Annotation: Small nucleolar RNA SNORA71: a 126-nucleotide sequence from Salmo trutta. By type it is an H/ACA-box small nucleolar RNA. Its family is annotated with nucleolus and RNA processing in the Gene Ontology. For this family Rfam cites "The family of box ACA small nucleolar RNAs is defined by an evolutionarily conserved secondary structure and ubiquitous sequence elements essential for RNA accumulation" (Ganot et al., Genes Dev, 1997). About the family: The members of this family belong to the H/ACA class of snoRNAs which bind a number of proteins (including dyskerin, Gar1p and Nop10p) to form snoRNP complexes. This class of snoRNAs are thought to guide the sites of modification of uridines to pseudouridines by forming direct base pairing interactions with substrate RNAs. This family includes U71 (SNORA71), ACA39 (SNORA39) and ACA60 (SNORA60). U71 and ACA60 are predicted to guide the pseudouridylation of U406 and U1004 in 18S rRNA respectively. There is currently no target RNA identified for ACA39.
Nucleotides: 126
Base pairs, nucleotide, nucleotide: 002056003055004054005053006052007051008050013045014044015043016042017041018040019039020037022036023035024034025033065122066121067120068119069118070117071116081109082108083107084106085105086103088101089100090099
Number, partner (000 for none) and nucleotide at each position: 001000c002056c003055c004054u005053g006052u007051a008050u009000c010000g011000a012000a013045a014044g015043u016042g017041a018040c019039u020037a021000u022036g023035g024034c025033a026000u027000g028000a029000c030000u031000g032000u033025u034024g035023u036022c037020u038000c039019a040018g041017u042016c043015a044014u045013u046000g047000a048000u049000a050008g051007u052006a053005c054004a055003g056002g057000a058000a059000u060000a061000g062000u063000g064000a065122u066121g067120a068119a069118a070117g071116a072000u073000u074000u075000u076000c077000c078000c079000g080000u081109g082108u083107u084106u085105g086103u087000u088101g089100g090099a091000a092000u093000a094000c095000c096000u097000g098000u099090u100089c101088c102000u103086g104000u105085c106084a107083a108082a109081c110000c111000c112000u113000g114000u115000a116071u117070c118069u119068u120067u121066c122065g123000a124000a125000c126000a